[Rfam]
RNA: tRNA
Organism: Limnohabitans sp. 103DPR2
RNA sequence: GCCCUUGUGGCUCAGUGGUAGAGCACCCCCUUGGUAAGGGGGAGAUCGCGGGUCCGAUUCCCGCCAAGGGCA
Numbered sequence: 001g002c003c004c005u006u007g008u009g010g011c012u013c014a015g016u017g018g019u020a021g022a023g024c025a026c027c028c029c030c031u032u033g034g035u036a037a038g039g040g041g042g043a044g045a046u047c048g049c050g051g052g053u054c055c056g057a058u059u060c061c062c063g064c065c066a067a068g069g070g071c072a
Stems, first nucleotide, its partner, number of pairs: 001071007010024004026042005048064005